[Rfam]
RNA: L17-Actino-Proteobacteria ribosomal protein leader
Organism: Nocardioides sp. URHA0020
RNA sequence: CGACCAGCGACCGCUGGUCGUCUACCCCGGUACCUGACACGGCCGGAGAG
Numbered sequence: 001c002g003a004c005c006a007g008c009g010a011c012c013g014c015u016g017g018u019c020g021u022c023u024a025c026c027c028c029g030g031u032a033c034c035u036g037a038c039a040c041g042g043c044c045g046g047a048g049a050g
Stems, first nucleotide, its partner, number of pairs: 001020008022050002025048001027046005